[Rfam]
RNA sequence: ACCUGUUGCGGGCGGCGGCUGAGGGUUGCCCGCAGCGCAUGACAGAAACACGUGCCCAUGGAAACAAAUGGGCACUUCAGGGCGUU
Numbered sequence: 001a002c003c004u005g006u007u008g009c010g011g012g013c014g015g016c017g018g019c020u021g022a023g024g025g026u027u028g029c030c031c032g033c034a035g036c037g038c039a040u041g042a043c044a045g046a047a048a049c050a051c052g053u054g055c056c057c058a059u060g061g062a063a064a065c066a067a068a069u070g071g072g073c074a075c076u077u078c079a080g081g082g083c084g085u086u
Stems, first nucleotide, its partner, number of pairs: 004037013052075008
Dot-bracket structure: ...(((((((((((((........)))))))))))))..............((((((((........))))))))...........

Shown here is an 86-nucleotide sequence from Streptomyces echinatus, a member of the family "nrdJ RNA". The organism belongs to Streptomyces, within Bacteria. By type it is a small RNA. Pairs were carried over by alignment from the consensus structure, which is taken from published work.